[Rfam]
RNA sequence: CUUAUCACAAAGGGGGGCCAUUUAUUGGCUGAGACUGAAUGAACUAUUCUAACCCUUCGAACCUGUUUCGUUAAUACGAGCGUAGGAAUUGUGUGAGUUGAGGAA
Number, nucleotide and partner (000 for none) at each position: 001c000002u000003u000004a000005u000006c093007a092008c091009a090010a089011a056012g055013g054014g053015g000016g050017g029018c028019c027020a026021u000022u000023u000024a000025u000026u020027g019028g018029c017030u000031g000032a000033g000034a000035c000036u000037g049038a048039a047040u046041g000042a000043a000044c000045u000046a040047u039048u038049c037050u016051a000052a000053c014054c013055c012056u011057u000058c000059g000060a000061a000062c086063c085064u084065g083066u000067u080068u079069c078070g077071u000072u000073a000074a000075u000076a000077c070078g069079a068080g067081c000082g000083u065084a064085g063086g062087a000088a000089u010090u009091g008092u007093g006094u000095g000096a000097g000098u000099u000100g000101a000102g000103g000104a000105a000

A member of the RNA family "TPP riboswitch aptamer (THI element)" from Jeotgalibaca dankookensis, 105 nucleotides long. It scores 67 bits against the family's covariance model. Rfam's curators write: Vitamin B(1) in its active form thiamin pyrophosphate (TPP) is an essential coenzyme that is synthesised by coupling of pyrimidine and thiazole moieties in bacteria. The previously detected thiamin-regulatory element, thi box was extended, resulting in a new, highly conserved RNA secondary structure, the THI element, which is widely distributed in eubacteria and also occurs in some archaea. Analysis of operon structures identified a large number of new candidate thiamin-regulated genes, mostly transporters, in various prokaryotic organisms. The THI element is a riboswitch that directly binds to TPP to regulate gene expression through a variety of mechanisms in archaea, bacteria and eukaryotes. through a variety of mechanisms in archaea, bacteria and eukaryotes. The source organism's lineage runs through Bacteria, Bacillati, Bacillota, Bacilli and Jeotgalibaca. Pairs were carried over by alignment from the consensus structure, which is taken from published work.